[Rfam]
U1 spliceosomal RNA: a 162-nucleotide RNA sequence from Otolemur garnettii. By type it is a spliceosomal small nuclear RNA. A search with the family's covariance model found it, with a score of 117 bits. Rfam's curators write: U1 is a small nuclear RNA (snRNA) component of the spliceosome (involved in pre-mRNA splicing). The organism belongs to Otolemur, within Eukaryota.

RNA sequence: AAACUAACCUGGCAGGGGGGAUACCAUUAUCACUAAGGUGGUUUUCCUAGAGUAAAGCUUAUCCAUUGCACUCAGGAUGUGCUGACCCUUGUGAUUUCCCCACAUGUGGGAAACUCAACUGUGUAAUUUGUGGUAUGGGGACUACAUUUGCACUUUCCCCUG
Numbered sequence: 001a002a003a004c005u006a007a008c009c010u011g012g013c014a015g016g017g018g019g020g021a022u023a024c025c026a027u028u029a030u031c032a033c034u035a036a037g038g039u040g041g042u043u044u045u046c047c048u049a050g051a052g053u054a055a056a057g058c059u060u061a062u063c064c065a066u067u068g069c070a071c072u073c074a075g076g077a078u079g080u081g082c083u084g085a086c087c088c089u090u091g092u093g094a095u096u097u098c099c100c101c102a103c104a105u106g107u108g109g110g111a112a113a114c115u116c117a118a119c120u121g122u123g124u125a126a127u128u129u130g131u132g133g134u135a136u137g138g139g140g141a142c143u144a145c146a147u148u149u150g151c152a153c154u155u156u157c158c159c160c161u162g
Base pairs, nucleotide, nucleotide: 012122013121014120015119016048017047018046019045020044021043023042024041025040026039027038049090050089052087056083057082058081060079061078062077063076064075092117093116094115095113096112097111099109100108137160138159139158140157141156